[Rfam]
RNA sequence: UGGCGUCGGUGAUGUUCCAUGAUUACCUACAUUGUUUGAGCCUCAUGAAAAGAAAAACGACUGAGAUGCCU
Numbered sequence: 001u002g003g004c005g006u007c008g009g010u011g012a013u014g015u016u017c018c019a020u021g022a023u024u025a026c027c028u029a030c031a032u033u034g035u036u037u038g039a040g041c042c043u044c045a046u047g048a049a050a051a052g053a054a055a056a057a058c059g060a061c062u063g064a065g066a067u068g069c070c071u
Stems, first nucleotide, its partner, number of pairs: 002070001004068004